[Rfam]
RNA sequence: UGAUAAGUUGCUCCUUAUGAGUAAUUUUAGUUAAGCAUAGAGAAGUCAUUUAGCGGUGUACUUUCUCUAUGCUUUUAUUAUAUCA
Numbered sequence: 001u002g003a004u005a006a007g008u009u010g011c012u013c014c015u016u017a018u019g020a021g022u023a024a025u026u027u028u029a030g031u032u033a034a035g036c037a038u039a040g041a042g043a044a045g046u047c048a049u050u051u052a053g054c055g056g057u058g059u060a061c062u063u064u065c066u067c068u069a070u071g072c073u074u075u076u077a078u079u080a081u082a083u084c085a
Base pairs, nucleotide, nucleotide: 005027006026007025008024009023010022011021012020013019033074034073035072036071037070038069039068040067041066042065043064044063045062